The family of this 79-nucleotide sequence from Nannospalax galili is "mir-3473 microRNA precursor family".

[Rfam]
Nucleotides: 079
Stems, first nucleotide, its partner, number of pairs: 002078023
Number, partner (000 for none) and nucleotide at each position: 001000a002078c003077c004076a005075c006074u007073g008072a009071g010070c011069c012068a013067u014066c015065u016064c017063u018062c019061c020060a021059g022058c023057c024056u025000c026000g027000c028000a029000g030000a031000a032000g033000g034000c035000u036000u037000u038000u039000u040000a041000a042000a043000a044000a045000c046000a047000a048000a049000a050000u051000u052000u053000g054000a055000g056024g057023g058022g059021c060020u061019g062018g063017a064016g065015a066014g067013a068012u069011g070010g071009c072008u073007c074006a075005g076004u077003g078002g079000u
Rfam links the family to the GO terms cellular response to mechanical stimulus, RISC complex and miRNA-mediated post-transcriptional gene silencing. The base pairs follow the family's consensus structure, which was predicted with RNAalifold. Lineage of the source: Eukaryota > Metazoa > Chordata > Sarcopterygii > Nannospalax.